[Rfam]
RNA sequence: UUGCAAGAGGGGAAUGAGGUUCUCCCCUGGCCUGCGCCAAAACCGCCCCUUGGCUGAUGACUUCUGUGAUUCC
Dot-bracket structure: .........[[[[..((((((.]]]]..................(((....)))....)))))).........
Source information:
This 73-nucleotide RNA from Anaerotalea alkaliphila belongs to the Rfam family "Fluoride riboswitch aptamer (crcB RNA motif)". Lineage of the source: Bacteria > Bacillota > Clostridia > Eubacteriales > Anaerotalea. The base pairs follow the family's consensus structure, which is taken from published work. The match comes from Rfam's covariance-model search (44 bits).